[Rfam]
RNA sequence: AGCAGGAUGCGGCGUUGACCCCGCAUCCGGCAAUCAACGUCUGAUGCGACGCUUGCGCGUCUUAUCAGACC
Numbered sequence: 001a002g003c004a005g006g007a008u009g010c011g012g013c014g015u016u017g018a019c020c021c022c023g024c025a026u027c028c029g030g031c032a033a034u035c036a037a038c039g040u041c042u043g044a045u046g047c048g049a050c051g052c053u054u055g056c057g058c059g060u061c062u063u064a065u066c067a068g069a070c071c
Stems, first nucleotide, its partner, number of pairs: 002031002005028004011022002014019001039070008048061005
The family of this 71-nucleotide sequence from Escherichia coli is "Nucleoid-associated noncoding RNA 4 (CssrE)". NCBI's taxonomy places the organism under Bacteria, Gammaproteobacteria, Enterobacteriaceae, Escherichia, Escherichia coli O139:H28. By type it is a small RNA. From the family's description: In E. coli small RNA transcribed from repeated extragenic palindromic element (REP325) called nucleoid-associated ncRNA 4 (nRNA4) collaborates HU protein in condensing the DNA. The secondary structure but not the sequence of the RNA is important in nucleoid condensation. A search with the family's covariance model found it, with a score of 61 bits.